Shown here is a 155-nucleotide RNA from Hucho hucho, a member of the family "Small Cajal body specific RNA 8".
Its family is annotated with RNA processing, Cajal body and nucleolus in the Gene Ontology.
About the family: scaRNAs are a specific class of small nuclear RNAs which localise to the Cajal bodies and guide the modification of RNA polymerase II transcribed spliceosomal RNAs U1, U2, U4, U5 and U12. U92 belong to the H/ACA box class of guide RNAs as it has the predicted hairpin-hinge-hairpin-tail structure, conserved H/ACA-box motifs and is found associated with GAR1.
It scores 65 bits against the family's covariance model.
It is annotated as a small Cajal body RNA.

RNA sequence: UGGGAGGCAGAUACCUGGUCAGUCCUGAGCUGUGCUCUGACCGUCACAAGCCCUCCCUAUAGCAUACCUGCUCUCUGAUGACUGGGGCGAGUUGAGUGAAAUAACCCUUACCUGCAUCAGGGUUUGGAACUGGUUUAGGAACAGAGGAGAAUAUA
Numbered sequence: 001u002g003g004g005a006g007g008c009a010g011a012u013a014c015c016u017g018g019u020c021a022g023u024c025c026u027g028a029g030c031u032g033u034g035c036u037c038u039g040a041c042c043g044u045c046a047c048a049a050g051c052c053c054u055c056c057c058u059a060u061a062g063c064a065u066a067c068c069u070g071c072u073c074u075c076u077g078a079u080g081a082c083u084g085g086g087g088c089g090a091g092u093u094g095a096g097u098g099a100a101a102u103a104a105c106c107c108u109u110a111c112c113u114g115c116a117u118c119a120g121g122g123u124u125u126g127g128a129a130c131u132g133g134u135u136u137a138g139g140a141a142c143a144g145a146g147g148a149g150a151a152u153a154u155a
Base pairs, nucleotide, nucleotide: 002057003056004055005054006053007052016043017042018041022037025034068149069148071146072145073144074143082132084130088126089125090124091123092122093121